Rfam assigns this 104-nucleotide RNA from Aegilops tauschii to the family "Small nucleolar RNA SNORA57". The literature on the family includes a 2003 paper in Nucleic Acids Res by Vitali et al., "Identification of 13 novel human modification guide RNAs". About the family: U99 belongs to the H/ACA class of snoRNAs which are thought to guide the sites of modification of uridines to pseudouridines, the target for this family is unknown. Pairs were carried over by alignment from the consensus structure, which was predicted with PFOLD.
RNA sequence: UCCCGGUUCUAGGCACGAACCGGGACAUUGGUCCCGGUUUGUGCCUAGAACCGGGACAGAAGGGAGAGCUUUAGUCCCGGUUCCAGCCACUAACCGGGACAAAU
Numbered sequence: 001u002c003c004c005g006g007u008u009c010u011a012g013g014c015a016c017g018a019a020c021c022g023g024g025a026c027a028u029u030g031g032u033c034c035c036g037g038u039u040u041g042u043g044c045c046u047a048g049a050a051c052c053g054g055g056a057c058a059g060a061a062g063g064g065a066g067a068g069c070u071u072u073a074g075u076c077c078c079g080g081u082u083c084c085a086g087c088c089a090c091u092a093a094c095c096g097g098g099a100c101a102a103a104u
Base pairs, nucleotide, nucleotide: 001056002055003054004053005052014043015042016041017040018039019038021036022035023034024033078096079095080094081093082092